[Rfam]
Background: The record is a 425-nucleotide part of an RNA from Parascaris univalens, which matches "Eukaryotic large subunit ribosomal RNA" in Rfam. The family's consensus secondary structure is taken from published work.
RNA sequence: UGACCUCAGCUCAGUCGUGAAUACCCGCUGAAUUUAAGCAUAUAACUAAGCGGAGGAAAAGAAACUAACGAGGAUUCCCUUAGUAACUGCGAGUGAAACGGGAAAAGCCCAGCGCUGAAUCCUUCAACCACUGGUUGCUAGGAAUUGUAGCGUAUAGAUGCGACUAUCCGUUCGUUUCGUGCACCCAAAGUCCCCUGAGCGGGGCUAUAGUCCAAAGAAGGUGCUAGACCUGUACGGGUGGCGAAGCGAAUGGUUGAUCGCUCCUUGGAGUCGGGUUGCCUGGGAUCGCAGCCCAAAGUUGGUGGUAGAUCUCAUCUAAGGCUAAAUAUGGCCACGAAACCGAUAGCAAACAAGUACCGUGAGGGAAAGUUGCAAAGAACUUUGAAGAGAGAGUUCAAGAGGGCGUGAAACCGUUGAGAUUGAAA
Numbered sequence: 001u002g003a004c005c006u007c008a009g010c011u012c013a014g015u016c017g018u019g020a021a022u023a024c025c026c027g028c029u030g031a032a033u034u035u036a037a038g039c040a041u042a043u044a045a046c047u048a049a050g051c052g053g054a055g056g057a058a059a060a061g062a063a064a065c066u067a068a069c070g071a072g073g074a075u076u077c078c079c080u081u082a083g084u085a086a087c088u089g090c091g092a093g094u095g096a097a098a099c100g101g102g103a104a105a106a107g108c109c110c111a112g113c114g115c116u117g118a119a120u121c122c123u124u125c126a127a128c129c130a131c132u133g134g135u136u137g138c139u140a141g142g143a144a145u146u147g148u149a150g151c152g153u154a155u156a157g158a159u160g161c162g163a164c165u166a167u168c169c170g171u172u173c174g175u176u177u178c179g180u181g182c183a184c185c186c187a188a189a190g191u192c193c194c195c196u197g198a199g200c201g202g203g204g205c206u207a208u209a210g211u212c213c214a215a216a217g218a219a220g221g222u223g224c225u226a227g228a229c230c231u232g233u234a235c236g237g238g239u240g241g242c243g244a245a246g247c248g249a250a251u252g253g254u255u256g257a258u259c260g261c262u263c264c265u266u267g268g269a270g271u272c273g274g275g276u277u278g279c280c281u282g283g284g285a286u287c288g289c290a291g292c293c294c295a296a297a298g299u300u301g302g303u304g305g306u307a308g309a310u311c312u313c314a315u316c317u318a319a320g321g322c323u324a325a326a327u328a329u330g331g332c333c334a335c336g337a338a339a340c341c342g343a344u345a346g347c348a349a350a351c352a353a354g355u356a357c358c359g360u361g362a363g364g365g366a367a368a369g370u371u372g373c374a375a376a377g378a379a380c381u382u383u384g385a386a387g388a389g390a391g392a393g394u395u396c397a398a399g400a401g402g403g404c405g406u407g408a409a410a411c412c413g414u415u416g417a418g419a420u421u422g423a424a425a
Stems, first nucleotide, its partner, number of pairs: 024055001025053005035042002065072002076103004086094002106323004113152005119146001120143004125137003157264001160261004165257001168256001172249007182240005190205001192204004213217001220230002273294007301316004357364002380391004

Annotation
The source organism's lineage runs through Eukaryota, Bilateria, Protostomia, Chromadorea and Parascaris. The match comes from Rfam's covariance-model search (3104 bits).